[Rfam]
ffh sRNA: a 52-nucleotide RNA sequence from Amaricoccus macauensis. The source organism's lineage runs through Bacteria, Alphaproteobacteria, Rhodobacterales, Paracoccaceae and Amaricoccus. It is annotated as a small RNA. A search with the family's covariance model found it, with a score of 49 bits. The literature on the family includes a 2009 paper in BMC Genomics by Meyer et al., "Identification of candidate structured RNAs in the marine organism 'Candidatus Pelagibacter ubique'".

RNA sequence: AUUUUGCAGGAUCGCCGUCGGUCAGCGCGUUGCGCCCACCGGCGCGGUCCGC
Numbered sequence: 001a002u003u004u005u006g007c008a009g010g011a012u013c014g015c016c017g018u019c020g021g022u023c024a025g026c027g028c029g030u031u032g033c034g035c036c037c038a039c040c041g042g043c044g045c046g047g048u049c050c051g052c
Stems, first nucleotide, its partner, number of pairs: 016044007025035004